[Rfam]
RNA sequence: GUUCUUACAAUGUCUGGUUAAGUGUUUGUUAACUUAAACCAGACAUUGUAAGAAUGG
Numbered sequence: 001g002u003u004c005u006u007a008c009a010a011u012g013u014c015u016g017g018u019u020a021a022g023u024g025u026u027u028g029u030u031a032a033c034u035u036a037a038a039c040c041a042g043a044c045a046u047u048g049u050a051a052g053a054a055u056g057g
Base pairs, nucleotide, nucleotide: 001055002054003053004052005051006050007049008048009047010046011045013043014042015041016040017039018038019037021035022034024033025032026031
This 57-nucleotide RNA sequence from Acyrthosiphon pisum belongs to the Rfam family "mir-3015 microRNA precursor family". The organism belongs to Acyrthosiphon, within Eukaryota.